RNA sequence: GACACAUGAUGUUUGUUCUCAUGAUGGCCUUCCAAGUCCCAGUGGUGACAGGGCUUUGACGACAGUUGCCAAGUGGGCUGACUGAUGUCAGUGG
Dot-bracket structure: ((((.................................................................................)))).....
Numbered sequence: 001g002a003c004a005c006a007u008g009a010u011g012u013u014u015g016u017u018c019u020c021a022u023g024a025u026g027g028c029c030u031u032c033c034a035a036g037u038c039c040c041a042g043u044g045g046u047g048a049c050a051g052g053g054c055u056u057u058g059a060c061g062a063c064a065g066u067u068g069c070c071a072a073g074u075g076g077g078c079u080g081a082c083u084g085a086u087g088u089c090a091g092u093g094g
Stems, first nucleotide, its partner, number of pairs: 001089004